The record is a 90-nucleotide RNA from Trema orientale, which matches "mir-160 microRNA precursor family" in Rfam.
Taxonomically the source falls in Trema (Eukaryota, Streptophyta, Spermatophyta, fabids).
On this family, see Rhoades et al., Cell 2002: "Prediction of plant microRNA targets".
The base pairs follow the family's consensus structure, which was predicted with PFOLD.

[Rfam]
RNA sequence: UUAUGCCUGGCUCCCUGUAUGCCACAAGCAUCAAUCCAGUCUGCUUAUUGGGUUGUUUUUUGCUGGUUGCGUGCGAGGAGCCAAGCAUGC
Numbered sequence: 001u002u003a004u005g006c007c008u009g010g011c012u013c014c015c016u017g018u019a020u021g022c023c024a025c026a027a028g029c030a031u032c033a034a035u036c037c038a039g040u041c042u043g044c045u046u047a048u049u050g051g052g053u054u055g056u057u058u059u060u061u062g063c064u065g066g067u068u069g070c071g072u073g074c075g076a077g078g079a080g081c082c083a084a085g086c087a088u089g090c
Base pairs, nucleotide, nucleotide: 002089003088004087005086006085008083009082010081011080012079013078014077016075017074018073019072020071021070022069024067027064028063029062